[Rfam]
RNA sequence: CAGCGGGUGCAAGCCCCGCCCGGCAAUCGCUCCAGCCGGAAGCAACUGGAGCAGUCAUGGAGGUAACGAAGUGGCUGAAGCCUCUGGUAAUGCGUGUCACGAAUAGGUGACAGCGCGAGUGUGCAGGCCGUAAUGCGA
Numbered sequence: 001c002a003g004c005g006g007g008u009g010c011a012a013g014c015c016c017c018g019c020c021c022g023g024c025a026a027u028c029g030c031u032c033c034a035g036c037c038g039g040a041a042g043c044a045a046c047u048g049g050a051g052c053a054g055u056c057a058u059g060g061a062g063g064u065a066a067c068g069a070a071g072u073g074g075c076u077g078a079a080g081c082c083u084c085u086g087g088u089a090a091u092g093c094g095u096g097u098c099a100c101g102a103a104u105a106g107g108u109g110a111c112a113g114c115g116c117g118a119g120u121g122u123g124c125a126g127g128c129c130g131u132a133a134u135g136c137g138a
Stems, first nucleotide, its partner, number of pairs: 020039005047086005052077006062067001095112006115131003

A member of the RNA family "Group II catalytic intron D1-D4-4" from Paraburkholderia panacisoli, 138 nucleotides long. On this family, see Bonen and Vogel, Trends Genet 2001: "The ins and outs of group II introns". Rfam describes the family as follows. Group II introns are found in rRNA, tRNA and mRNA of organelles in fungi, plants and protists, and also in mRNA in bacteria. Pairs were carried over by alignment from the consensus structure. The match comes from Rfam's covariance-model search (98 bits).